[Rfam]
Rfam assigns this 89-nucleotide sequence from Exiguobacterium chiriqhucha to the family "pan motif". NCBI's taxonomy places the organism under Bacteria, Bacillota, Bacilli, Caryophanales, Exiguobacterium chiriqhucha.

RNA sequence: CGGACGCUAUCGCUCGCGAAGUGUACCAGCACUGCAGACCGUCACUACAUUUUUUUGUCUGCCUUGAUCAUUUUGACAGGGACAGAAGG
Dot-bracket structure: .(((((((.((......))))))).))...............................((((((((.(((...)))))))).)))....
Numbered sequence: 001c002g003g004a005c006g007c008u009a010u011c012g013c014u015c016g017c018g019a020a021g022u023g024u025a026c027c028a029g030c031a032c033u034g035c036a037g038a039c040c041g042u043c044a045c046u047a048c049a050u051u052u053u054u055u056u057g058u059c060u061g062c063c064u065u066g067a068u069c070a071u072u073u074u075g076a077c078a079g080g081g082a083c084a085g086a087a088g089g
Stems, first nucleotide, its partner, number of pairs: 002027002004024005010019002059085003062081005068076003

It scores 52 bits against the family's covariance model. The base pairs follow the family's consensus structure, which is taken from published work.